This 372-nucleotide RNA from Glaciihabitans arcticus belongs to the Rfam family "Bacterial RNase P class A". Rfam classes the family as a ribozyme. It scores 292 bits against the family's covariance model.
[Rfam]
RNA sequence: UGGGUCGGCAAGACGGUCGCGUGGGUUGGUAACAACCACCGAGGAACGUCCGGGCUCCUUAGAGCAUGGCGGUGGGUAACACCCACCCGGGGCAACCCGCGAGAACAGUGCAACAGAAAACAGACCGCCACGUGCGCUUCGGCUCACGAGGUAAGGGUGAAACGGUGGUGUAAGAGACCACCAGCGGCCGGGGUGACCCGAUCGGCUAUGUAAACCUCGCCAGGAGCAAGGUCAGACAGAAUGCGUUACGGGCUGCUCGUCCAGCAUUCGGGUAGACCGCUAGAGGCGUGCGGCAACGUACGUCGUAGAUAGAUGGCCGUCGAUGGUGCUUCGGCACCGGGACAGAACCCGGCGUAACAGCCGGCCCAUUCC
Numbered sequence: 001u002g003g004g005u006c007g008g009c010a011a012g013a014c015g016g017u018c019g020c021g022u023g024g025g026u027u028g029g030u031a032a033c034a035a036c037c038a039c040c041g042a043g044g045a046a047c048g049u050c051c052g053g054g055c056u057c058c059u060u061a062g063a064g065c066a067u068g069g070c071g072g073u074g075g076g077u078a079a080c081a082c083c084c085a086c087c088c089g090g091g092g093c094a095a096c097c098c099g100c101g102a103g104a105a106c107a108g109u110g111c112a113a114c115a116g117a118a119a120a121c122a123g124a125c126c127g128c129c130a131c132g133u134g135c136g137c138u139u140c141g142g143c144u145c146a147c148g149a150g151g152u153a154a155g156g157g158u159g160a161a162a163c164g165g166u167g168g169u170g171u172a173a174g175a176g177a178c179c180a181c182c183a184g185c186g187g188c189c190g191g192g193g194u195g196a197c198c199c200g201a202u203c204g205g206c207u208a209u210g211u212a213a214a215c216c217u218c219g220c221c222a223g224g225a226g227c228a229a230g231g232u233c234a235g236a237c238a239g240a241a242u243g244c245g246u247u248a249c250g251g252g253c254u255g256c257u258c259g260u261c262c263a264g265c266a267u268u269c270g271g272g273u274a275g276a277c278c279g280c281u282a283g284a285g286g287c288g289u290g291c292g293g294c295a296a297c298g299u300a301c302g303u304c305g306u307a308g309a310u311a312g313a314u315g316g317c318c319g320u321c322g323a324u325g326g327u328g329c330u331u332c333g334g335c336a337c338c339g340g341g342a343c344a345g346a347a348c349c350c351g352g353c354g355u356a357a358c359a360g361c362c363g364g365c366c367c368a369u370u371c372c
Stems, first nucleotide, its partner, number of pairs: 001368009012321007020041002024037005046355003050352005055226004062258004067222005072086005087101001088099004102217002108215002110211003125156002127152003132145001134143002164182006184206001185204003189200004230278004239269006250262004285304008